The family of this 66-nucleotide sequence from Raphanus sativus is "Small nucleolar RNA Z105".
The organism belongs to Raphanus, within Eukaryota.
Gene Ontology terms of the family: RNA processing and nucleolus.
Rfam classes the family as a C/D-box small nucleolar RNA.
A search with the family's covariance model found it, with a score of 62 bits.
The literature on the family includes a 2003 paper in Nucleic Acids Res by Chen et al., "The high diversity of snoRNAs in plants: identification and comparative study of 120 snoRNA genes from Oryza sativa".
[Rfam]
RNA sequence: AGGGCAUGAUGAGGAUUGUUAUUGUCAUCCGAUUCAUGACGAAUCAAUACCUCCUACUCAUUCUGA
Numbered sequence: 001a002g003g004g005c006a007u008g009a010u011g012a013g014g015a016u017u018g019u020u021a022u023u024g025u026c027a028u029c030c031g032a033u034u035c036a037u038g039a040c041g042a043a044u045c046a047a048u049a050c051c052u053c054c055u056a057c058u059c060a061u062u063c064u065g066a
Stems, first nucleotide, its partner, number of pairs: 006061004025042002029038001